Source information:
The record is a 110-nucleotide sequence from Cucumis melo, which matches "Small nucleolar RNA Z152/R70/R12/" in Rfam. The source organism's lineage runs through Eukaryota, Viridiplantae, Spermatophyta, rosids and Cucumis. Rfam links the family to the GO terms RNA processing and nucleolus. The family's RNA type in Rfam is C/D-box small nucleolar RNA. The family's consensus secondary structure was predicted with PFOLD.

RNA sequence: GAAGCUAUGAUAACAGAAGACUUUGAUGUGUUAUAGGCAGUGGACGUAACUUUUAAUUAAGUUAUGUCGUGAGCCUAUAUAAUAAACGACUUCUGAUUCCACUCAGCUUC
Numbered sequence: 001g002a003a004g005c006u007a008u009g010a011u012a013a014c015a016g017a018a019g020a021c022u023u024u025g026a027u028g029u030g031u032u033a034u035a036g037g038c039a040g041u042g043g044a045c046g047u048a049a050c051u052u053u054u055a056a057u058u059a060a061g062u063u064a065u066g067u068c069g070u071g072a073g074c075c076u077a078u079a080u081a082a083u084a085a086a087c088g089a090c091u092u093c094u095g096a097u098u099c100c101a102c103u104c105a106g107c108u109u110c
Stems, first nucleotide, its partner, number of pairs: 001110005